[Rfam]
Notes
This 90-nucleotide sequence from Magnetospirillum moscoviense belongs to the Rfam family "tRNA". It scores 59 bits against the family's covariance model. Its family is annotated with triplet codon-amino acid adaptor activity in the Gene Ontology. The family's RNA type in Rfam is transfer RNA. NCBI's taxonomy places the organism under Bacteria, Alphaproteobacteria, Rhodospirillales, Rhodospirillaceae, Magnetospirillum.
RNA sequence: GGAGGGAUGGGUGAGUGGCUGAAACCAACGGUUUGCUAAACCGUCGUAGAGGGUAAACCUCUACCGAGGGUUCGAAUCCCUCUCCCUCCG
Numbered sequence: 001g002g003a004g005g006g007a008u009g010g011g012u013g014a015g016u017g018g019c020u021g022a023a024a025c026c027a028a029c030g031g032u033u034u035g036c037u038a039a040a041c042c043g044u045c046g047u048a049g050a051g052g053g054u055a056a057a058c059c060u061c062u063a064c065c066g067a068g069g070g071u072u073c074g075a076a077u078c079c080c081u082c083u084c085c086c087u088c089c090g
Stems, first nucleotide, its partner, number of pairs: 001089007010026003028044005066082005